Background:
Shown here is an 85-nucleotide sequence from Bactrocera dorsalis, a member of the family "mir-927 microRNA precursor family". The source organism's lineage runs through Eukaryota, Protostomia, Insecta, Dacini and Bactrocera dorsalis complex. Rfam 15.1 lists 174 matches to the family in 143 species. Its family is annotated with miRNA-mediated post-transcriptional gene silencing and RISC complex in the Gene Ontology.
[Rfam]
RNA sequence: UCCUUGCAACUCAUUUUAGAAUUCCUACGCUUUACCGUAGAAAUUGUUAAUCGGCAAAGCGUUUGGAUUCUGAAACGAGCGGCAG
Numbered sequence: 001u002c003c004u005u006g007c008a009a010c011u012c013a014u015u016u017u018a019g020a021a022u023u024c025c026u027a028c029g030c031u032u033u034a035c036c037g038u039a040g041a042a043a044u045u046g047u048u049a050a051u052c053g054g055c056a057a058a059g060c061g062u063u064u065g066g067a068u069u070c071u072g073a074a075a076c077g078a079g080c081g082g083c084a085g
Stems, first nucleotide, its partner, number of pairs: 010079003014075007022067003027062007035054002